Annotation
Shown here is a 194-nucleotide RNA from Punica granatum, a member of the family "MIR408 microRNA precursor family". A search with the family's covariance model found it, with a score of 71 bits. On this family, see Sunkar and Zhu, Plant Cell 2004: "Novel and stress-regulated microRNAs and other small RNAs from Arabidopsis".
Nucleotides: 194
Base pairs, nucleotide, nucleotide: 017177018176019175021172023170024169025168026167027166029164030163031162032161033160034159036157037156038155039154040153041152045148046147
Number, partner (000 for none) and nucleotide at each position: 001000g002000g003000a004000a005000g006000a007000g008000a009000c010000u011000g012000g013000a014000a015000c016000g017177g018176a019175g020000a021172c022000u023170g024169g025168g026167a027166a028000c029164a030163g031162g032161c033160a034159g035000g036157g037156c038155a039154u040153g041152g042000a043000u044000g045148g046147a047000u048000c049000c050000a051000c052000a053000a054000c055000a056000g057000a058000g059000a060000c061000a062000a063000a064000c065000a066000g067000c068000g069000g070000g071000a072000u073000a074000g075000a076000g077000a078000u079000c080000g081000a082000g083000u084000c085000a086000c087000g088000g089000a090000u091000c092000g093000a094000g095000a096000g097000a098000u099000c100000a101000a102000u103000c104000c105000g106000a107000a108000u109000u110000a111000g112000a113000g114000g115000a116000c117000g118000a119000g120000u121000a122000u123000g124000a125000g126000g127000a128000a129000g130000a131000a132000g133000a134000a135000g136000c137000u138000g139000u140000u141000g142000u143000g144000g145000u146000g147046u148045c149000c150000u151000c152041c153040c154039a155038u156037g157036c158000a159034c160033u161032g162031c163030c164029u165000c166027u167026u168025c169024c170023c171000u172021g173000g174000u175019c176018u177017u178000g179000u180000g181000c182000u183000c184000u185000u186000c187000u188000u189000c190000a191000u192000u193000c194000u